[Rfam]
A member of the RNA family "mir-302 microRNA precursor family" from Cavia porcellus, 69 nucleotides long. Clan: mir-290 clan. The match comes from Rfam's covariance-model search (73 bits). Lineage of the source: Eukaryota > Deuterostomia > Euteleostomi > Dipnotetrapodomorpha > Cavia.
RNA sequence: CCACCACUUAAACGUGGACGUACUUGCUUUGGAAGCGAGAAAGUAAGUGCUUCCAUGUUUCGGUGAUGG
Numbered sequence: 001c002c003a004c005c006a007c008u009u010a011a012a013c014g015u016g017g018a019c020g021u022a023c024u025u026g027c028u029u030u031g032g033a034a035g036c037g038a039g040a041a042a043g044u045a046a047g048u049g050c051u052u053c054c055a056u057g058u059u060u061c062g063g064u065g066a067u068g069g
Stems, first nucleotide, its partner, number of pairs: 001069003005065004010060009020050009